[Rfam]
The record is a 77-nucleotide RNA sequence, which matches "freshwater-2 RNA" in Rfam. Pairs were carried over by alignment from the consensus structure, which is taken from published work.
RNA sequence: ACUCUAAAUGGUUAGGGUGUUUAUGCAGUAAUCCACUGCGUAAGUCAUAGAACGACUUUUCUAAGGAGAAAACAAUG
Numbered sequence: 001a002c003u004c005u006a007a008a009u010g011g012u013u014a015g016g017g018u019g020u021u022u023a024u025g026c027a028g029u030a031a032u033c034c035a036c037u038g039c040g041u042a043a044g045u046c047a048u049a050g051a052a053c054g055a056c057u058u059u060u061c062u063a064a065g066g067a068g069a070a071a072a073c074a075a076u077g
Stems, first nucleotide, its partner, number of pairs: 001018006022042007043057004
Dot-bracket structure: ((((((......))))))...(((((((.......)))))))((((.......))))....................
Description:
The family's RNA type in Rfam is cis-regulatory element. Rfam's curators put it in the seed alignment.